[Rfam]
RNA sequence: GUCGGUCUUCGGUAGUGGCUUUUCGGUAGUGGCCGUUCCAUCGGGAACGAACCGGCCGGCGAGCUUCGAUCGAUGACCGCC
Numbered sequence: 001g002u003c004g005g006u007c008u009u010c011g012g013u014a015g016u017g018g019c020u021u022u023u024c025g026g027u028a029g030u031g032g033c034c035g036u037u038c039c040a041u042c043g044g045g046a047a048c049g050a051a052c053c054g055g056c057c058g059g060c061g062a063g064c065u066u067c068g069a070u071c072g073a074u075g076a077c078c079g080c081c
Stems, first nucleotide, its partner, number of pairs: 001081001003079005009073005017065005023059005
The record is an 81-nucleotide RNA sequence from Antrihabitans stalagmiti, which matches "Actino-pnp RNA" in Rfam. The family's consensus secondary structure is taken from published work. A search with the family's covariance model found it, with a score of 51 bits.